RNA sequence: UAGUAAUGAUGGAAAGGUUUUCUACUGAUCUUUAUAACUAUGAAUAUUUCUAUACUUGAUCUGAGCUCA
Numbered sequence: 001u002a003g004u005a006a007u008g009a010u011g012g013a014a015a016g017g018u019u020u021u022c023u024a025c026u027g028a029u030c031u032u033u034a035u036a037a038c039u040a041u042g043a044a045u046a047u048u049u050c051u052a053u054a055c056u057u058g059a060u061c062u063g064a065g066c067u068c069a
Base pairs, nucleotide, nucleotide: 002067003066004065013033014032015031016030017029018028019027